[Rfam]
RNA sequence: CUGGCAGUUCCAAGCUCUGAGAACUGGUUUUCAUGGACUGGUGCCAGUUCAAUACGUUCAGUCCAUAAUACUCAGUUCUCUAGCUUGGCUGCACCAG
Numbered sequence: 001c002u003g004g005c006a007g008u009u010c011c012a013a014g015c016u017c018u019g020a021g022a023a024c025u026g027g028u029u030u031u032c033a034u035g036g037a038c039u040g041g042u043g044c045c046a047g048u049u050c051a052a053u054a055c056g057u058u059c060a061g062u063c064c065a066u067a068a069u070a071c072u073c074a075g076u077u078c079u080c081u082a083g084c085u086u087g088g089c090u091g092c093a094c095c096a097g
Stems, first nucleotide, its partner, number of pairs: 010088002013085003020079008035064006

A member of the RNA family "mir-146 microRNA precursor family" from Varanus komodoensis, 97 nucleotides long. On this family, see Lagos-Quintana et al., Curr Biol 2002: "Identification of tissue-specific microRNAs from mouse". A search with the family's covariance model found it, with a score of 61 bits. Rfam links the family to the GO terms RISC complex and miRNA-mediated post-transcriptional gene silencing.